RNA sequence: CCAAAUAUAUACGUUAUACCGUAGACAGCAGGUGCUCUCUAGAGCUUAAUUUCCUGCCGAGGUGUGUGAAUAGAAAAGAUAACCAGCGGAUGGUUAUCUCAUCGAAAACAGAGCCUCCAAGUCUACUUGGAGGCUCUUUUUCAUUGCCUUU
Numbered sequence: 001c002c003a004a005a006u007a008u009a010u011a012c013g014u015u016a017u018a019c020c021g022u023a024g025a026c027a028g029c030a031g032g033u034g035c036u037c038u039c040u041a042g043a044g045c046u047u048a049a050u051u052u053c054c055u056g057c058c059g060a061g062g063u064g065u066g067u068g069a070a071u072a073g074a075a076a077a078g079a080u081a082a083c084c085a086g087c088g089g090a091u092g093g094u095u096a097u098c099u100c101a102u103c104g105a106a107a108a109c110a111g112a113g114c115c116u117c118c119a120a121g122u123c124u125a126c127u128u129g130g131a132g133g134c135u136c137u138u139u140u141u142c143a144u145u146g147c148c149u150u151u
Base pairs, nucleotide, nucleotide: 028057029056030055031054032053034045035044036043111136112135113134114133115132116131117130118129119128120127